[Rfam]
RNA sequence: GACAGCCUCCGGGCCCCUCUGGCAGAUACACCGGUAUAUCUGCGAUGUCGGCAGGCACAU
Numbered sequence: 001g002a003c004a005g006c007c008u009c010c011g012g013g014c015c016c017c018u019c020u021g022g023c024a025g026a027u028a029c030a031c032c033g034g035u036a037u038a039u040c041u042g043c044g045a046u047g048u049c050g051g052c053a054g055g056c057a058c059a060u
Stems, first nucleotide, its partner, number of pairs: 006054001009051004022043007

This 60-nucleotide RNA from Pontixanthobacter aestiaquae belongs to the Rfam family "terC RNA". The source organism's lineage runs through Bacteria, Pseudomonadota, Sphingomonadales, Erythrobacteraceae and Pontixanthobacter. It scores 43 bits against the family's covariance model. The family's RNA type in Rfam is cis-regulatory element.